Rfam assigns this 113-nucleotide RNA sequence from Goekera deserti to the family "SAM (S-adenosyl methionine) riboswitch aptamer". It scores 88 bits against the family's covariance model. From the family's description: SAM-IV is a mRNA element that regulates gene expression via direct sensing of S-adenosylmethionine (SAM or AdoMet). Gene Ontology terms of the family: regulation of gene expression and S-adenosylmethionine metabolic process.

RNA sequence: GGUCUCGAGUGCCAGCAUCCAGCCCCGGCUCGCUGGCCGGCAACCCUCCGCUGUGACGGGGUGCCCCGGGUGACGACCUGGCGGAGCGCGCCCGCGUACCGCAAGCCAGCCGA
Numbered sequence: 001g002g003u004c005u006c007g008a009g010u011g012c013c014a015g016c017a018u019c020c021a022g023c024c025c026c027g028g029c030u031c032g033c034u035g036g037c038c039g040g041c042a043a044c045c046c047u048c049c050g051c052u053g054u055g056a057c058g059g060g061g062u063g064c065c066c067c068g069g070g071u072g073a074c075g076a077c078c079u080g081g082c083g084g085a086g087c088g089c090g091c092c093c094g095c096g097u098a099c100c101g102c103a104a105g106c107c108a109g110c111c112g113a
Base pairs, nucleotide, nucleotide: 001078002077003076004075009038011037012036013035014034015033016032021030022029039065040064041063044061045060046059049055081102082101083100084099086097087096088095089094